[Rfam]
RNA sequence: CCAAAGGCUCUUUUCAGAGCCACCACAUUUUCCCUUAAAAGAGCUG
Numbered sequence: 001c002c003a004a005a006g007g008c009u010c011u012u013u014u015c016a017g018a019g020c021c022a023c024c025a026c027a028u029u030u031u032c033c034c035u036u037a038a039a040a041g042a043g044c045u046g
Stems, first nucleotide, its partner, number of pairs: 006021006
Dot-bracket structure: .....((((((....)))))).........................
RNA: Histone 3' UTR stem-loop
Organism: Cnephaeus nilssonii